[Rfam]
A member of the RNA family "Burkholderia RNA 7 (anti-hemB)" from Variovorax sp. OV329, 87 nucleotides long. This RNA motif was identified by computational search in b-proteobacteria Burkholderia. Co-purified with Hfq, expression confirmed by Northern blot. The source organism's lineage runs through Bacteria, Pseudomonadati, Betaproteobacteria, Burkholderiales and Variovorax. A reference for the family is Weinberg et al. (2007), "Identification of 22 candidate structured RNAs in bacteria using the CMfinder comparative genomics pipeline", Nucleic Acids Res. Its family is annotated with protein binding and bacterial biofilm matrix in the Gene Ontology.
RNA sequence: UCCCCGCUUUUCCUCCCUGAGCGGGUGCCUUGAUGUGUGACAGCAAAAGGGCUUCCCGCCCGGCGUUCAUUCGCCGGGCUUUUUUUU
Dot-bracket structure: ..((((((...........)))))).((((...(((......)))...)))).....((((((((......))))))))........